[Rfam]
This 75-nucleotide sequence from Oryzias latipes belongs to the Rfam family "mir-193 microRNA precursor family".
The family's consensus secondary structure was predicted with RNAalifold.
The source organism's lineage runs through Eukaryota, Bilateria, Neoteleostei, Beloniformes and Oryzias.
It is one of the family's seed sequences.
On this family, see Watanabe et al., Genes Dev 2006: "Identification and characterization of two novel classes of small RNAs in the mouse germline: retrotransposon-derived siRNAs in oocytes and germline small RNAs in testes".

RNA sequence: GCCAGAGGCUGGGUCUUUGCGGGCAAGGUGAGUCCUCCAUUCAUUCAACUGGCCUACAAAGUCCCAGUUUCUGAC
Numbered sequence: 001g002c003c004a005g006a007g008g009c010u011g012g013g014u015c016u017u018u019g020c021g022g023g024c025a026a027g028g029u030g031a032g033u034c035c036u037c038c039a040u041u042c043a044u045u046c047a048a049c050u051g052g053c054c055u056a057c058a059a060a061g062u063c064c065c066a067g068u069u070u071c072u073g074a075c
Base pairs, nucleotide, nucleotide: 003073004072005071006070007069008068010066011065012064013063015061016060017059018058019057021055022054023053024052026050027049029047030046